This 138-nucleotide RNA from Theobroma umbraticum belongs to the Rfam family "mir-172 microRNA precursor family". A reference for the family is Jones-Rhoades and Bartel (2004), "Computational Identification of Plant MicroRNAs and Their Targets, Including a Stress-Induced miRNA", Mol Cell. Gene Ontology terms of the family: RISC complex and miRNA-mediated post-transcriptional gene silencing. mir-172 has been experimentally verified in Arabidopsis thaliana. This family is thought to target mRNAs coding for APETALA2-like transcription factors. The mature sequence is excised from the 3' arm of the hairpin. The family's consensus secondary structure was predicted with PFOLD.

RNA sequence: UUUAUUGCCGCUGCAGCAUCAUCAAGAUUCCCAUACAUAUUCAAAGGGCUGAUUCUAUAGUGAAGCAUGAUCUUCACCAUUGAUCAUUAGCCCUAAAAAAAGUUUUGUGAAUCUUGAUGAUGCUCCAUCAGCAAACAG
Numbered sequence: 001u002u003u004a005u006u007g008c009c010g011c012u013g014c015a016g017c018a019u020c021a022u023c024a025a026g027a028u029u030c031c032c033a034u035a036c037a038u039a040u041u042c043a044a045a046g047g048g049c050u051g052a053u054u055c056u057a058u059a060g061u062g063a064a065g066c067a068u069g070a071u072c073u074u075c076a077c078c079a080u081u082g083a084u085c086a087u088u089a090g091c092c093c094u095a096a097a098a099a100a101a102g103u104u105u106u107g108u109g110a111a112u113c114u115u116g117a118u119g120a121u122g123c124u125c126c127a128u129c130a131g132c133a134a135a136c137a138g
Base pairs, nucleotide, nucleotide: 010129012127013126015124016123017122018121019120020119021118022117023116024115025114026113027112028111029110030109032107033106